RNA sequence: GUCGAGCCGGUGCCCCCUACGGGUCACCGGGCCGGGGACCCAUCGCAGUCCUGGGGUGUAGCGCGCGUGCGCGCCGGGCGACUCCACGCCCGAACCCGUCAGCUAACCCGGUAGGCGGCCUGGGAGAAGGA
Numbered sequence: 001g002u003c004g005a006g007c008c009g010g011u012g013c014c015c016c017c018u019a020c021g022g023g024u025c026a027c028c029g030g031g032c033c034g035g036g037g038a039c040c041c042a043u044c045g046c047a048g049u050c051c052u053g054g055g056g057u058g059u060a061g062c063g064c065g066c067g068u069g070c071g072c073g074c075c076g077g078g079c080g081a082c083u084c085c086a087c088g089c090c091c092g093a094a095c096c097c098g099u100c101a102g103c104u105a106a107c108c109c110g111g112u113a114g115g116c117g118g119c120c121u122g123g124g125a126g127a128a129g130g131a
Stems, first nucleotide, its partner, number of pairs: 001116003007030006031112006041053002054097003062073004076091004

A member of the RNA family "c-di-AMP riboswitch aptamer (ydaO/yuaA leader)" from Geodermatophilus dictyosporus, 131 nucleotides long. The organism belongs to Geodermatophilus, within Bacteria. The match comes from Rfam's covariance-model search (61 bits). Its family is annotated with regulation of gene expression and cyclic-di-AMP binding in the Gene Ontology.